[Rfam]
RNA sequence: AACAAUCCAGCCUGAAGCGUUGUCUCAACCUUGUCUAUUCAAAAUACAGGUGAGCAAAGUUUCAGGUGUGUUCAUUU
Numbered sequence: 001a002a003c004a005a006u007c008c009a010g011c012c013u014g015a016a017g018c019g020u021u022g023u024c025u026c027a028a029c030c031u032u033g034u035c036u037a038u039u040c041a042a043a044a045u046a047c048a049g050g051u052g053a054g055c056a057a058a059g060u061u062u063c064a065g066g067u068g069u070g071u072u073c074a075u076u077u
Stems, first nucleotide, its partner, number of pairs: 002075001005072001007070001010067006017060002020057002024054004029050003
RNA: mir-87 microRNA precursor family
Organism: Varroa destructor